[Rfam]
RNA: Small nucleolar RNA SNORA79
RNA sequence: CGACGGCUGUUCCUCUCACUGCCAUAAGGUUUGGGCGGUGUGAUUUUAGGCUGUCGUACAUCAAAGUGGCCUUCUUCACUCGGAAUGGCACUUUGGCUGUGGCUGUGCACGUGUGCCUUCUGAAUUUUGCGGGGUCAGACACAU
Numbered sequence: 001c002g003a004c005g006g007c008u009g010u011u012c013c014u015c016u017c018a019c020u021g022c023c024a025u026a027a028g029g030u031u032u033g034g035g036c037g038g039u040g041u042g043a044u045u046u047u048a049g050g051c052u053g054u055c056g057u058a059c060a061u062c063a064a065a066g067u068g069g070c071c072u073u074c075u076u077c078a079c080u081c082g083g084a085a086u087g088g089c090a091c092u093u094u095g096g097c098u099g100u101g102g103c104u105g106u107g108c109a110c111g112u113g114u115g116c117c118u119u120c121u122g123a124a125u126u127u128u129g130c131g132g133g134g135u136c137a138g139a140c141a142c143a144u
Stems, first nucleotide, its partner, number of pairs: 001056008014043002017040002020037004068136006080123006087117004096108002